[Rfam]
RNA sequence: CAAGGUCGGGAAAUCUAUUCCAAAUCUGUUUAAAAAUUAGCCAGCGCGCGCCUGCAAAGCCGCUCAUUCGCGCCAAUACUUCAGCAACUGGCAACGCAAUCCCCCGAUGCGAAGCCAGCUGAAGCCGCGAGGAACGCGGCUUCGACUCCUAAUGGUCUUGACCCGGAUCCCUUGGCUUCCGG
Numbered sequence: 001c002a003a004g005g006u007c008g009g010g011a012a013a014u015c016u017a018u019u020c021c022a023a024a025u026c027u028g029u030u031u032a033a034a035a036a037u038u039a040g041c042c043a044g045c046g047c048g049c050g051c052c053u054g055c056a057a058a059g060c061c062g063c064u065c066a067u068u069c070g071c072g073c074c075a076a077u078a079c080u081u082c083a084g085c086a087a088c089u090g091g092c093a094a095c096g097c098a099a100u101c102c103c104c105c106g107a108u109g110c111g112a113a114g115c116c117a118g119c120u121g122a123a124g125c126c127g128c129g130a131g132g133a134a135c136g137c138g139g140c141u142u143c144g145a146c147u148c149c150u151a152a153u154g155g156u157c158u159u160g161a162c163c164c165g166g167a168u169c170c171c172u173u174g175g176c177u178u179c180c181g182g
Stems, first nucleotide, its partner, number of pairs: 040156004088118003092114001095111001097109002120144009163182004